Small nucleolar RNA Z247: a 139-nucleotide RNA sequence from Oryza meyeriana. Its family is annotated with RNA processing and nucleolus in the Gene Ontology. Pairs were carried over by alignment from the consensus structure, which was predicted with PFOLD. By type it is a C/D-box small nucleolar RNA. The source organism's lineage runs through Eukaryota, Spermatophyta, Magnoliopsida, Poaceae and Oryza meyeriana.

[Rfam]
RNA sequence: ACUUUGGACGAAGAAGAAUUCAUCUCCUACGUCCUCAAUGGCAUCAACAUCAACUACAACCCAGUUGUCUCAUCCAUCUUGGGACAUACCGAAGCGCUCACGGUUAGUGAAGUCUAUUCUCAGUUAUUGAAUUUUGAAA
Number, nucleotide and partner (000 for none) at each position: 001a000002c000003u000004u138005u137006g000007g135008a134009c000010g000011a000012a000013g000014a000015a000016g000017a000018a000019u000020u000021c000022a000023u000024c000025u000026c000027c000028u000029a000030c000031g000032u000033c000034c000035u000036c000037a000038a000039u000040g000041g000042c000043a000044u000045c000046a000047a000048c000049a000050u000051c000052a000053a000054c000055u000056a000057c000058a000059a000060c000061c000062c000063a000064g000065u000066u000067g000068u000069c000070u000071c000072a000073u000074c000075c000076a000077u000078c000079u000080u000081g000082g000083g000084a000085c000086a000087u000088a108089c107090c000091g105092a104093a000094g000095c000096g000097c000098u000099c000100a000101c000102g000103g000104u092105u091106a000107g089108u088109g000110a000111a000112g000113u000114c000115u000116a000117u000118u000119c000120u000121c000122a000123g000124u000125u000126a000127u000128u000129g000130a000131a000132u000133u000134u008135u007136g000137a005138a004139a000